[Rfam]
RNA sequence: CCUUUAUCCAGAGCGGCGUAGGGAUCUGGCCUGAAGAUCGCCGCAGCAACCGGCCCUCAUCGCGGCACCCGGUGCUCCGCCAGCCCGCACGCGCCAACGAUGGCUUUACAUAGGCGGCGGGAACGAUAAGGG
Numbered sequence: 001c002c003u004u005u006a007u008c009c010a011g012a013g014c015g016g017c018g019u020a021g022g023g024a025u026c027u028g029g030c031c032u033g034a035a036g037a038u039c040g041c042c043g044c045a046g047c048a049a050c051c052g053g054c055c056c057u058c059a060u061c062g063c064g065g066c067a068c069c070c071g072g073u074g075c076u077c078c079g080c081c082a083g084c085c086c087g088c089a090c091g092c093g094c095c096a097a098c099g100a101u102g103g104c105u106u107u108a109c110a111u112a113g114g115c116g117g118c119g120g121g122a123a124c125g126a127u128a129a130g131g132g
Stems, first nucleotide, its partner, number of pairs: 001132008013044005021032003026083004045076004050072002052068001053066003079124001084121005
Dot-bracket structure: ((((((((....(((((...(((..[[[[))).......)))))((((.((((((........))).)..))))))..(]]]](((((............................)))))..)))))))))